Shown here is a 73-nucleotide RNA from Actibacterium mucosum, a member of the family "Singlet oxygen resistance RNA X".
Rfam classes the family as a small RNA.
On this family, see Peng et al., RNA Biol 2016: "Regulation of a polyamine transporter by the conserved 3' UTR-derived sRNA SorX confers resistance to singlet oxygen and organic hydroperoxides in Rhodobacter sphaeroides".
About the family: SorX (RSs2461)like SorY is a singlet oxygen induced sRNA that counteracts oxidative stress by targeting mRNA for a transporter in Rhodobacter.
[Rfam]
RNA sequence: CCCCUUCGCGUGCCGGGGCAAUGGCACGCACCUCCCUGUUGGACUUGCCCGGGCCGCGUGCCCGGGUUUUUUU
Numbered sequence: 001c002c003c004c005u006u007c008g009c010g011u012g013c014c015g016g017g018g019c020a021a022u023g024g025c026a027c028g029c030a031c032c033u034c035c036c037u038g039u040u041g042g043a044c045u046u047g048c049c050c051g052g053g054c055c056g057c058g059u060g061c062c063c064g065g066g067u068u069u070u071u072u073u
Stems, first nucleotide, its partner, number of pairs: 008029007047067008
Taxonomically the source falls in Actibacterium mucosum (Bacteria, Pseudomonadota, Rhodobacterales, Roseobacteraceae). Gene Ontology term of the family: response to photooxidative stress. The base pairs follow the family's consensus structure. The match comes from Rfam's covariance-model search (80 bits).